[Rfam]
RNA sequence: UAAAAGUGGAGAACAGAAACCAUUAAAAAAAACGUGGCGUAACCGAAAAGCCAUAUGAGUAGGAUAAAU
Numbered sequence: 001u002a003a004a005a006g007u008g009g010a011g012a013a014c015a016g017a018a019a020c021c022a023u024u025a026a027a028a029a030a031a032a033c034g035u036g037g038c039g040u041a042a043c044c045g046a047a048a049a050g051c052c053a054u055a056u057g058a059g060u061a062g063g064a065u066a067a068a069u
Base pairs, nucleotide, nucleotide: 006023007022008021009020036052037051038050043063044062
Shown here is a 69-nucleotide RNA sequence from Siansivirga zeaxanthinifaciens, a member of the family "DUF805 RNA". Pairs were carried over by alignment from the consensus structure, which is taken from published work. By type it is a cis-regulatory element.